A member of the RNA family "Pseudomonas rpsL leader" from Pseudomonas mangrovi, 134 nucleotides long. The organism belongs to Pseudomonas, within Bacteria. Pairs were carried over by alignment from the consensus structure, which is taken from published work. The family's RNA type in Rfam is cis-regulatory leader.
RNA sequence: AGCCGGAGCCUGCCUUGACGGGGUGGUGCAGUCUCUUUAGACUCAUGCACCCCUAAAUUUGGCAGGGCACGUGCUCUGCCAUUUUGCUUUCUUUUGAAAGCGAUAGCGUCGAAAGACAACAGUGGAGCUAAAGA
Numbered sequence: 001a002g003c004c005g006g007a008g009c010c011u012g013c014c015u016u017g018a019c020g021g022g023g024u025g026g027u028g029c030a031g032u033c034u035c036u037u038u039a040g041a042c043u044c045a046u047g048c049a050c051c052c053c054u055a056a057a058u059u060u061g062g063c064a065g066g067g068c069a070c071g072u073g074c075u076c077u078g079c080c081a082u083u084u085u086g087c088u089u090u091c092u093u094u095u096g097a098a099a100g101c102g103a104u105a106g107c108g109u110c111g112a113a114a115g116a117c118a119a120c121a122g123u124g125g126a127g128c129u130a131a132a133g134a
Stems, first nucleotide, its partner, number of pairs: 004017003008013001021052003025048001030043001033040002060081009101133001104130004108117003